Bacterial RNase P class A: a 318-nucleotide RNA sequence from Campylobacter portucalensis. Lineage of the source: Bacteria > Pseudomonadati > Campylobacterales > Campylobacteraceae > Campylobacter. The family's RNA type in Rfam is ribozyme.
[Rfam]
RNA sequence: UUGGUGUGAUGAGUAAUCGCGUGAAAACGAGGAAAGUCCGAGCUGCUUUAAGACAGGGUUCCAUCUAACGGAUGGCUAGGGUAACCUAAGGGAUAGUGCAACAGAAAGCAAACUACUGCAAAUGCAGAAAAGGUGAAACGGUAGAGUAAGAGCCUACCAGCGUUUUUGGCAACAUUAACGGCUAUGUAAACCCAACUCGCAGCAAGAAGGGGCGGUUUAGUCUUAUAUAAAACCCUUCGCUUGAGCUAAAUUGCAAAAUUUAGCCUAGAUAAAUGAUUACUUGAAAAACAGAACUCGGCUUAUAGUUACACCAAAAUU
Numbered sequence: 001u002u003g004g005u006g007u008g009a010u011g012a013g014u015a016a017u018c019g020c021g022u023g024a025a026a027a028c029g030a031g032g033a034a035a036g037u038c039c040g041a042g043c044u045g046c047u048u049u050a051a052g053a054c055a056g057g058g059u060u061c062c063a064u065c066u067a068a069c070g071g072a073u074g075g076c077u078a079g080g081g082u083a084a085c086c087u088a089a090g091g092g093a094u095a096g097u098g099c100a101a102c103a104g105a106a107a108g109c110a111a112a113c114u115a116c117u118g119c120a121a122a123u124g125c126a127g128a129a130a131a132g133g134u135g136a137a138a139c140g141g142u143a144g145a146g147u148a149a150g151a152g153c154c155u156a157c158c159a160g161c162g163u164u165u166u167u168g169g170c171a172a173c174a175u176u177a178a179c180g181g182c183u184a185u186g187u188a189a190a191c192c193c194a195a196c197u198c199g200c201a202g203c204a205a206g207a208a209g210g211g212g213c214g215g216u217u218u219a220g221u222c223u224u225a226u227a228u229a230a231a232a233c234c235c236u237u238c239g240c241u242u243g244a245g246c247u248a249a250a251u252u253g254c255a256a257a258a259u260u261u262a263g264c265c266u267a268g269a270u271a272a273a274u275g276a277u278u279a280c281u282u283g284a285a286a287a288a289c290a291g292a293a294c295u296c297g298g299c300u301u302a303u304a305g306u307u308a309c310a311c312c313a314a315a316a317u318u
Base pairs, nucleotide, nucleotide: 001314002313003312004311005310006309007308008307009306010305011303012281013280014279015278016277017276018275020029021028022027034301035300036299038298039297040296041295042294043202044201045200046199051226053224056198057197058196059195060194061075062074063073064072065071076090077088078087079086080085091193092192096191097190098187099186100185113132114131116127117126118125119124140158141157142156143155144154160182161180162179163178164177167174168173206238207237208236209235217231218230220228221227245264246263247262248261249260250259251258252257